[Rfam]
RNA sequence: UCAUACCGGCGGCGGCAUGUCCGUGCGCCGCCGCCCGCACGAGAAGGGGAUAGAUCGACGCGUCAAGAAAUCGUUUCAGUUGCCAUGACUCCAGUAGGCAAUAUGAUUGUUGCUUGACCACAG
Numbered sequence: 001u002c003a004u005a006c007c008g009g010c011g012g013c014g015g016c017a018u019g020u021c022c023g024u025g026c027g028c029c030g031c032c033g034c035c036c037g038c039a040c041g042a043g044a045a046g047g048g049g050a051u052a053g054a055u056c057g058a059c060g061c062g063u064c065a066a067g068a069a070a071u072c073g074u075u076u077c078a079g080u081u082g083c084c085a086u087g088a089c090u091c092c093a094g095u096a097g098g099c100a101a102u103a104u105g106a107u108u109g110u111u112g113c114u115u116g117a118c119c120a121c122a123g
Base pairs, nucleotide, nucleotide: 006037008035009034010033011032012031013030014029015028016027062118064116065115066114067113070107071106072105073104079102080101081100082099083098084097

Record summary: The record is a 123-nucleotide sequence from Digitaria exilis, which matches "Small nucleolar RNA snoR111" in Rfam. The organism belongs to Digitaria, within Eukaryota. A reference for the family is Marker et al. (2002), "Experimental RNomics: identification of 140 candidates for small non-messenger RNAs in the plant Arabidopsis thaliana", Curr Biol. Rfam classes the family as an H/ACA-box small nucleolar RNA. Rfam 15.1 lists 533 matches to the family in 223 species. The family's consensus secondary structure was predicted with WAR. The match comes from Rfam's covariance-model search (52 bits).